[Rfam]
Notes: Rfam assigns this 502-nucleotide sequence from Flavobacteriales bacterium ALC-1 to the family "Giant, ornate, lake- and Lactobacillales-derived (GOLLD) RNA". By type it is a non-coding RNA gene. Lineage of the source: Bacteria > Pseudomonadati > Bacteroidota > Flavobacteriia > Flavobacteriales. For this family Rfam cites "Exceptional structured noncoding RNAs revealed by bacterial metagenome analysis" (Weinberg et al., Nature, 2009).
Nucleotides: 502
Stems, first nucleotide, its partner, number of pairs: 001061009011042004017038008045175007161234002176380008195389004203220005221247005228240004250366005263351002299312004314347003317343001392476003396472003399430005406423005431492003436464006481501003
Number, partner (000 for none) and nucleotide at each position: 001061a002060g003059g004058a005057g006056a007055a008054g009053g010000u011042u012041g013040g014039u015000a016000u017038u018037u019036u020035g021034u022033a023032g024031g025000c026000a027000a028000a029000a030000a031024u032023c033022u034021a035020c036019g037018a038017a039014g040013c041012c042011a043000u044000u045175u046174u047173c048172g049171a050170a051169g052000c053009c054008c055007u056006u057005c058004u059003c060002c061001u062000a063000g064000g065000u066000c067000a068000a069000a070000g071000u072000u073000u074000u075000g076000a077000a078000g079000u080000c081000u082000a083000g084000g085000u086000u087000c088000g089000a090000u091000u092000c093000c094000u095000a096000g097000u098000a099000u100000c101000u102000c103000a104000a105000c106000c107000g108000a109000a110000a111000a112000g113000g114000g115000g116000a117000u118000a119000u120000a121000g122000u123000u124000c125000a126000a127000c128000u129000g130000g131000u132000a133000g134000a135000g136000c137000a138000c139000u140000g141000u142000a143000u144000u145000u146000u147000u148000c149000a150000u151000a152000c153000a154000g155000c156000g157000a158000a159000a160000g161234g162233c163000a164000c165000a166000a167000g168000a169051c170050u171049u172048c173047g174046a175045a176380c177379a178378u179377u180376a181375u182374a183373g184000c185000a186000g187000u188000u189000a190000g191000u192000a193000g194000u195389u196388g197387c198386c199000u200000a201000a202000a203220c204219c205218c206217a207216u208000u209000g210000c211000a212000a213000u214000a215000u216207a217206u218205g219204g220203g221247a222246c223245a224244g225243u226000a227000g228240a229239g230238g231237u232000c233162g234161c235000a236000a237231g238230c239229c240228u241000a242000u243225a244224c245223u246222g247221u248000g249000c250366g251365g252364u253363g254362a255000a256000c257000a258000u259000u260000c261000u262000a263351g264350u265000a266000g267000g268000c269000c270000g271000c272000c273000u274000c275000a276000a277000c278000a279000g280000a281000g282000g283000a284000c285000g286000u287000c288000u289000a290000u291000g292000a293000a294000u295000g296000g297000u298000g299312a300311g301310g302309g303000a304000g305000c306000c307000a308000a309302c310301c311300c312299u313000u314347g315346u316345a317343a318000u319000u320000g321000c322000a323000a324000a325000g326000c327000g328000u329000g330000g331000u332000u333000u334000u335000a336000a337000u338000a339000c340000c341000a342000c343317u344000a345316u346315g347314c348000a349000a350264g351263c352000c353000a354000a355000g356000u357000c358000u359000a360000a361000g362254u363253c364252g365251c366250u367000g368000a369000a370000c371000a372000u373183c374182u375181a376180u377179a378178a379177u380176g381000u382000a383000u384000u385000a386198g387197g388196c389195a390000u391000c392476a393475g394474g395000u396472a397471a398470g399430u400429a401428c402427a403426c404000a405000a406423u407422u408421c409420u410419c411000u412000a413000a414000g415000c416000g417000a418000u419410g420409a421408g422407a423406a424000g425000c426403g427402u428401g429400u430399g431492g432491a433490a434000a435000a436464u437463u438462a439461g440460g441459g442000a443000a444000g445000g446000g447000c448000u449000a450000c451000g452000g453000c454000u455000a456000u457000a458000a459441u460440c461439c462438u463437a464436a465000g466000a467000a468000a469000g470398c471397u472396u473000a474394u475393c476392u477000a478000c479000a480000a481501g482500c483499g484000g485000a486000g487000g488000u489000a490433u491432u492431c493000u494000c495000a496000g497000a498000a499483c500482g501481c502000u